A member of the RNA family "Metazoan signal recognition particle RNA" from Sus scrofa, 300 nucleotides long.
RNA sequence: GCUGGGCACGGUGGUACAUGCCUGCAGUCCCAGCUACUUGGGAGGCUGAGGCUGGAAGAUCGCUUGAGUCCAGGAGUUCUGGGCUGCAGUGCGCUAUGCUGAUCCAGUGUCUGACUGACGUUCGGCACCAAUAUAGUGAACUUCUAGGAGCAGGGGACCACCAAGAUGCCUAAGGAGGGGUGAACUGGCCUAGAUCGGAAAUGGAAAAGGUCAAAAUUCCUAUGCUGAUCAGUAGUGGGAUCACACCUGUGGAUAGCCACUGCACUCCAGCCUGGGCAACACAGCAAGACCCUGUCUCAA
Numbered sequence: 001g002c003u004g005g006g007c008a009c010g011g012u013g014g015u016a017c018a019u020g021c022c023u024g025c026a027g028u029c030c031c032a033g034c035u036a037c038u039u040g041g042g043a044g045g046c047u048g049a050g051g052c053u054g055g056a057a058g059a060u061c062g063c064u065u066g067a068g069u070c071c072a073g074g075a076g077u078u079c080u081g082g083g084c085u086g087c088a089g090u091g092c093g094c095u096a097u098g099c100u101g102a103u104c105c106a107g108u109g110u111c112u113g114a115c116u117g118a119c120g121u122u123c124g125g126c127a128c129c130a131a132u133a134u135a136g137u138g139a140a141c142u143u144c145u146a147g148g149a150g151c152a153g154g155g156g157a158c159c160a161c162c163a164a165g166a167u168g169c170c171u172a173a174g175g176a177g178g179g180g181u182g183a184a185c186u187g188g189c190c191u192a193g194a195u196c197g198g199a200a201a202u203g204g205a206a207a208a209g210g211u212c213a214a215a216a217u218u219c220c221u222a223u224g225c226u227g228a229u230c231a232g233u234a235g236u237g238g239g240a241u242c243a244c245a246c247c248u249g250u251g252g253a254u255a256g257c258c259a260c261u262g263c264a265c266u267c268c269a270g271c272c273u274g275g276g277c278a279a280c281a282c283a284g285c286a287a288g289a290c291c292c293u294g295u296c297u298c299a300a
Stems, first nucleotide, its partner, number of pairs: 001046003004023005010017001028043003048298005054292002060287001062285003068277007079270005085264007093257005099251001104249001107246004111239002115235003120230001122228006129168002132165001134163001136161003141156005169175002176221006186213005195204003
The match comes from Rfam's covariance-model search (182 bits). The family's consensus secondary structure is taken from published work. Rfam links the family to the GO terms signal recognition particle, endoplasmic reticulum targeting and SRP-dependent cotranslational protein targeting to membrane, signal sequence recognition. Rfam classes the family as a non-coding RNA gene.